[Rfam]
RNA sequence: CUUGUCGGCUAGUGGGCAACUAAUCUUUUGCGUAAUAAUGCAGAACCAAAACUGCAUAAGUGUACAAGGCGUUUCAUAGAAGCAGGGUGCGUAUUACCCUGUGUUUACGUGUAUAGUCAUAUAACUCUUGUGGGGAAGCUUAGUAACUAAAGCUAGAUAUAUGUUUGGAUACUAGGCUAGACAUGUAUUUGGGGCUAGAUGCUAUGCGUAUGCAACUAAAAACAGUAAAAUGCAAAACGUAUAGGGUAAACAAUUUUGGAUAUUAACUGGUAGAAAGUACGCUUCUAUCAGUUUUUA
Number, nucleotide and partner (000 for none) at each position: 001c068002u067003u066004g065005u064006c062007g061008g000009c000010u000011a000012g000013u000014g000015g000016g000017c000018a000019a000020c000021u000022a000023a000024u000025c000026u000027u000028u000029u000030g000031c000032g000033u000034a000035a000036u000037a000038a000039u056040g055041c054042a053043g052044a000045a000046c259047c258048a257049a256050a255051a000052c043053u042054g041055c040056a039057u000058a000059a000060g000061u007062g006063u000064a005065c004066a003067a002068g001069g240070c239071g238072u237073u236074u235075c000076a000077u000078a000079g000080a000081a000082g102083c101084a100085g099086g098087g097088u096089g282090c281091g280092u279093a278094u277095u276096a088097c087098c086099c085100u084101g083102u082103g000104u229105u228106u227107a226108c225109g000110u224111g223112u000113a000114u000115a000116g000117u000118c000119a000120u000121a000122u000123a000124a000125c000126u000127c000128u000129u000130g000131u000132g000133g000134g000135g000136a000137a000138g000139c000140u000141u000142a000143g000144u000145a000146a000147c000148u000149a000150a000151a000152g000153c000154u000155a000156g000157a000158u000159a000160u000161a000162u000163g000164u000165u000166u000167g000168g000169a000170u000171a000172c000173u000174a000175g000176g000177c000178u000179a000180g000181a000182c000183a000184u000185g000186u000187a000188u000189u000190u000191g000192g000193g000194g000195c000196u000197a000198g000199a000200u000201g000202c000203u000204a000205u000206g000207c000208g000209u000210a000211u000212g000213c000214a000215a000216c000217u000218a000219a000220a000221a000222a000223c111224a110225g108226u107227a106228a105229a104230a000231u000232g000233c000234a000235a074236a073237a072238c071239g070240u069241a000242u000243a000244g000245g000246g000247u000248a000249a000250a000251c000252a000253a000254u000255u050256u049257u048258g047259g046260a000261u000262a000263u000264u000265a293266a292267c291268u290269g289270g288271u287272a286273g285274a284275a283276a095277g094278u093279a092280c091281g090282c089283u275284u274285c273286u272287a271288u270289c269290a268291g267292u266293u265294u000295u000296u000297a000
RNA: FuFi-1 RNA